About this RNA:
The record is a 109-nucleotide RNA from a Paenibacillaceae bacterium, which matches "pan motif" in Rfam. The family's RNA type in Rfam is cis-regulatory element.
[Rfam]
RNA sequence: AGGGCGAUAUCCGCAGCUGCGGAAUUGCACUUCAUUCGAUGCAUUGCCUUAUUUCAAUGAAUGACGACAAGCGCACUCUGCUCUGAGCCAAUUGGACCGAGACAGAAGG
Numbered sequence: 001a002g003g004g005c006g007a008u009a010u011c012c013g014c015a016g017c018u019g020c021g022g023a024a025u026u027g028c029a030c031u032u033c034a035u036u037c038g039a040u041g042c043a044u045u046g047c048c049u050u051a052u053u054u055c056a057a058u059g060a061a062u063g064a065c066g067a068c069a070a071g072c073g074c075a076c077u078c079u080g081c082u083c084u085g086a087g088c089c090a091a092u093u094g095g096a097c098c099g100a101g102a103c104a105g106a107a108g109g
Base pairs, nucleotide, nucleotide: 001032002031003030004028005027006026007025008024010023011022012021013020078105079104080103081101082100083099085097088095089094